[Rfam]
RNA sequence: GUGACCCGGGAUCGCCCCCCGUCAGCGAGGUUUCGCCCGCGGGGGCCGUUGGC
Dot-bracket structure: ...............(((((((..((((....))))..)))))))........
Numbered sequence: 001g002u003g004a005c006c007c008g009g010g011a012u013c014g015c016c017c018c019c020c021g022u023c024a025g026c027g028a029g030g031u032u033u034c035g036c037c038c039g040c041g042g043g044g045g046c047c048g049u050u051g052g053c
Stems, first nucleotide, its partner, number of pairs: 016045007025036004